Rfam assigns this 99-nucleotide sequence from Callorhinchus milii to the family "Vault RNA". It is annotated as a non-coding RNA gene. The literature on the family includes a 2009 paper in Mol Biol Evol by Stadler et al., "Evolution of Vault RNAs". Lineage of the source: Eukaryota > Opisthokonta > Eumetazoa > Holocephali > Callorhinchus. Rfam 15.1 lists 2,873 matches to the family in 431 species. Rfam describes the family as follows. This family of RNAs are found as part of the enigmatic vault ribonucleoprotein complex. The complex consists of a major vault protein (MVP), two minor vault proteins (VPARP and TEP1), and several small untranslated RNA molecules. It has been suggested that the vault complex is involved in drug resistance. The sequence is in the family's curated seed alignment.

RNA sequence: GCGUCAGCUAUAGCUCAGUGGAUACUUCGUUUAUUGCAAAACACUUAACAGCCCCGAGUAACAUCGGGACUCGUGCCACGGGCGCUGUCUGACGUUUUU
Numbered sequence: 001g002c003g004u005c006a007g008c009u010a011u012a013g014c015u016c017a018g019u020g021g022a023u024a025c026u027u028c029g030u031u032u033a034u035u036g037c038a039a040a041a042c043a044c045u046u047a048a049c050a051g052c053c054c055c056g057a058g059u060a061a062c063a064u065c066g067g068g069a070c071u072c073g074u075g076c077c078a079c080g081g082g083c084g085c086u087g088u089c090u091g092a093c094g095u096u097u098u099u
Stems, first nucleotide, its partner, number of pairs: 002094006013083004018079004026075001028073002